[Rfam]
Nucleotides: 199
Base pairs, nucleotide, nucleotide: 001097003095005038006037008035010031011030042093043092044091045090051086052085053084054083055080057078058077059076060073128191129190130189131188132187133186134185145177146176147175148174149173150172154164155163156162157161
Number, partner (000 for none) and nucleotide at each position: 001097u002000u003095u004000a005038g006037a007000a008035a009000u010031c011030c012000a013000u014000c015000c016000c017000u018000u019000c020000a021000c022000u023000c024000u025000c026000c027000c028000c029000g030011g031010g032000c033000u034000c035008u036000g037006u038005c039000c040000a041000g042093g043092u044091g045090g046000c047000g048000u049000a050000c051086g052085g053084g054083a055080g056000c057078a058077u059076a060073g061000g062000g063000c064000u065000c066000u067000g068000c069000c070000c071000g072000g073060u074000g075000a076059u077058g078057u079000a080055c081000a082000g083054u084053c085052c086051c087000u088000u089000u090045c091044c092043a093042c094000a095003a096000c097001g098000u099000u100000g101000g102000a103000g104000a105000u106000g107000a108000a109000g110000c111000c112000g113000g114000g115000c116000c117000u118000u119000g120000a121000g122000u123000c124000u125000g126000c127000g128191c129190u130189u131188g132187c133186a134185u135000a136000u137000u138000c139000c140000u141000a142000c143000g144000u145177c146176u147175u148174c149173u150172c151000a152000g153000a154164g155163u156162c157161c158000u159000g160000u161157g162156g163155a164154c165000a166000a167000u168000g169000a170000c171000u172150g173149g174148g175147g176146a177145g178000a179000a180000a181000a182000a183000c184000c185134a186133u187132g188131c189130a190129g191128g192000a193000a194000a195000c196000a197000g198000c199000u
Small nucleolar RNA SNORA73 family: a 199-nucleotide RNA from Cervus elaphus.
The family is grouped with related families in Rfam's "snR30-U17 clan".
The match comes from Rfam's covariance-model search (149 bits).
The source organism's lineage runs through Eukaryota, Opisthokonta, Deuterostomia, Cervinae and Cervus elaphus.
The family's RNA type in Rfam is H/ACA-box small nucleolar RNA.
Gene Ontology terms of the family: nucleolus and RNA processing.
About the family: U17 (SNORA73A and SNORA73B) also known as E1 belongs to the H/ACA class of small nucleolar RNAs (snoRNAs). Vertebrate U17 is intron-encoded and ranges in length from 200-230 nucleotides, longer than most snoRNAs. It is one of the most abundant snoRNAs in human cells and is essential for the cleavage of pre-rRNA within the 5' external transcribed spacer (ETS). This cleavage leads to the formation of 18S rRNA. Regions of the U17 RNA are complementary to rRNA and act as guides for RNA/RNA interactions, although these regions do not seem to be well conserved between organisms.